A member of the RNA family "mir-219 microRNA precursor family" from Drosophila mojavensis, 77 nucleotides long. For this family Rfam cites "Vertebrate microRNA genes" (Lim et al., Science, 2003). Rfam links the family to the GO terms RISC complex and miRNA-mediated post-transcriptional gene silencing.
Nucleotides: 077
Stems, first nucleotide, its partner, number of pairs: 002076001004074004009069004014065005022057010
Number, partner (000 for none) and nucleotide at each position: 001000u002076u003000u004074a005073g006072c007071u008000a009069u010068g011067a012066u013000u014065g015064u016063c017062c018061a019000a020000a021000c022057g023056c024055a025054a026053u027052u028051c029050u030049u031048g032000u033000u034000g035000a036000u037000u038000u039000u040000u041000a042000a043000a044000u045000a046000c047000u048031c049030a050029a051028g052027g053026g054025u055024u056023g057022c058000a059000u060000c061018u062017g063016g064015g065014c066012a067011u068010c069009g070000c071007g072006g073005c074004u075000c076002g077000a